[Rfam]
About this RNA: A member of the RNA family "c-di-AMP riboswitch aptamer (ydaO/yuaA leader)" from Aneurinibacillus danicus, 146 nucleotides long. From the family's description: This family represents a conserved RNA structure found upstream of the ydaO and yuaA genes in Bacillus subtilis and related genes in other bacteria.
RNA sequence: CCGCAUAUCUGGCCUAGUCCCGGAGCAUCCGGGAGCGGAGGACCCACUCUUUUGGGGUUAAUUCUUACGAUUGUAAGGAGGGAUGAGAAUAUCUCUUUCGCCAUCCUACCCGUCAGCUAACUUCGUCGGCUAAAGCGAAGGAGGUC
Numbered sequence: 001c002c003g004c005a006u007a008u009c010u011g012g013c014c015u016a017g018u019c020c021c022g023g024a025g026c027a028u029c030c031g032g033g034a035g036c037g038g039a040g041g042a043c044c045c046a047c048u049c050u051u052u053u054g055g056g057g058u059u060a061a062u063u064c065u066u067a068c069g070a071u072u073g074u075a076a077g078g079a080g081g082g083a084u085g086a087g088a089a090u091a092u093c094u095c096u097u098u099c100g101c102c103a104u105c106c107u108a109c110c111c112g113u114c115a116g117c118u119a120a121c122u123u124c125g126u127c128g129g130c131u132a133a134a135g136c137g138a139a140g141g142a143g144g145u146c
Stems, first nucleotide, its partner, number of pairs: 011131004018034007035126006045054002055111003063078004081106004
A search with the family's covariance model found it, with a score of 72 bits.